[Rfam]
RNA sequence: GGUUUCACCUCGGGGUGCCUUACAAUUACAGGCUGAGAUCAUACCCGUUGAACCUGGACCAGGUAAUGCUGGUUAGGAAAGGUAAGUACUUUCACC
Numbered sequence: 001g002g003u004u005u006c007a008c009c010u011c012g013g014g015g016u017g018c019c020u021u022a023c024a025a026u027u028a029c030a031g032g033c034u035g036a037g038a039u040c041a042u043a044c045c046c047g048u049u050g051a052a053c054c055u056g057g058a059c060c061a062g063g064u065a066a067u068g069c070u071g072g073u074u075a076g077g078a079a080a081g082g083u084a085a086g087u088a089c090u091u092u093c094a095c096c
Base pairs, nucleotide, nucleotide: 007083008082009081010080011047012046013045014044016041017033018032019031020030053077054076055075056074059072060071061070062069
RNA: TPP riboswitch aptamer (THI element)
Organism: Chitinophaga caeni